[Rfam]
RNA sequence: GGCCCGCGCCUUGCUGUGCACAAGGCGAUGGUAGUCAACGGCGAUUACCCGACUUCGACAAAGGCGUCGC
Numbered sequence: 001g002g003c004c005c006g007c008g009c010c011u012u013g014c015u016g017u018g019c020a021c022a023a024g025g026c027g028a029u030g031g032u033a034g035u036c037a038a039c040g041g042c043g044a045u046u047a048c049c050c051g052a053c054u055u056c057g058a059c060a061a062a063g064g065c066g067u068c069g070c
Stems, first nucleotide, its partner, number of pairs: 030049007
A member of the RNA family "narK RNA" from Pseudomonas nitroreducens, 70 nucleotides long.
Rfam's curators put it in the seed alignment.
By type it is a cis-regulatory element.
Pairs were carried over by alignment from the consensus structure, which is taken from published work.
NCBI's taxonomy places the organism under Bacteria, Gammaproteobacteria, Pseudomonadales, Pseudomonadaceae, Pseudomonas nitroreducens.